Mammalian CPEB3 ribozyme: a 79-nucleotide RNA sequence from Geotrypetes seraphini. About the family: The mammalian CPEB3 ribozyme is a self cleaving RNA located in the second intron of the CPEB3 gene which belongs to a family of genes regulating messenger RNA polyadenylation. Lineage of the source: Eukaryota > Bilateria > Chordata > Gnathostomata > Geotrypetes.
RNA sequence: AGUUGCUGGUCUCGGGCUAGUUUCAGAGAUGUUCAGAUCAUAGCCCCUGUCAGAUUUCAACAGAUCUGUGAAUUGGGCG
Numbered sequence: 001a002g003u004u005g006c007u008g009g010u011c012u013c014g015g016g017c018u019a020g021u022u023u024c025a026g027a028g029a030u031g032u033u034c035a036g037a038u039c040a041u042a043g044c045c046c047c048u049g050u051c052a053g054a055u056u057u058c059a060a061c062a063g064a065u066c067u068g069u070g071a072a073u074u075g076g077g078c079g
Stems, first nucleotide, its partner, number of pairs: 014046005022079001024077001027074002029041003051068007